[Rfam]
RNA sequence: GUGCCUUAAACUAAUGAGUAAGGAAAACAAAGCGUCUGGUGAGAACCGGUCGCAGCGCUAAUCGUAAAACACUAAAGUGGCGCAAGAAUUUAUGGAGGGGUUUAAAAUAAAAUGACACAGUUUUUGUUUCCAAUAUUUAAAAAAAAAAACGCC
Dot-bracket structure: ...(((((..........)))))........(((.((((......)))).))).(((((...................)))))...............(((((.(((((....((((.......)))).....))))).)).........)))
Numbered sequence: 001g002u003g004c005c006u007u008a009a010a011c012u013a014a015u016g017a018g019u020a021a022g023g024a025a026a027a028c029a030a031a032g033c034g035u036c037u038g039g040u041g042a043g044a045a046c047c048g049g050u051c052g053c054a055g056c057g058c059u060a061a062u063c064g065u066a067a068a069a070c071a072c073u074a075a076a077g078u079g080g081c082g083c084a085a086g087a088a089u090u091u092a093u094g095g096a097g098g099g100g101u102u103u104a105a106a107a108u109a110a111a112a113u114g115a116c117a118c119a120g121u122u123u124u125u126g127u128u129u130c131c132a133a134u135a136u137u138u139a140a141a142a143a144a145a146a147a148a149a150c151g152c153c
Stems, first nucleotide, its partner, number of pairs: 004023005032053003036049004055083005099153003102141002105138005114128004

Shown here is a 153-nucleotide sequence from Arabidopsis lyrata, a member of the family "U12 minor spliceosomal RNA". Taxonomically the source falls in Arabidopsis lyrata (Eukaryota, Viridiplantae, Pentapetalae, Camelineae).